This 67-nucleotide RNA sequence from Rhizobium sp. NFR07 belongs to the Rfam family "S-element". For this family Rfam cites "Two discrete elements are required for the replication of a repABC plasmid: an antisense RNA and a stem-loop structure" (Venkova-Canova et al., Mol Microbiol, 2004). Lineage of the source: Bacteria > Pseudomonadota > Alphaproteobacteria > Hyphomicrobiales > Rhizobium. Gene Ontology terms of the family: mRNA transcription and translation regulator activity. It is annotated as a cis-regulatory element. This family represents a group of S-elements from p42d and related plasmids. The S-element has multiple functions and is believed to act as a negative regulator of repC transcription, be required for efficient replication and act as a translational enhancer of repC.
RNA sequence: AGUCAAGAGUUUUGGCACCGCUUUUGGUGGGCGAAUUUCUUUUGCCUAUUGGAAGGUGAAAGAGAUG
Numbered sequence: 001a002g003u004c005a006a007g008a009g010u011u012u013u014g015g016c017a018c019c020g021c022u023u024u025u026g027g028u029g030g031g032c033g034a035a036u037u038u039c040u041u042u043u044g045c046c047u048a049u050u051g052g053a054a055g056g057u058g059a060a061a062g063a064g065a066u067g
Base pairs, nucleotide, nucleotide: 010063011062012060013059016058017057018056019055022054023053024052025051026050027049029047031045032044033043034042035041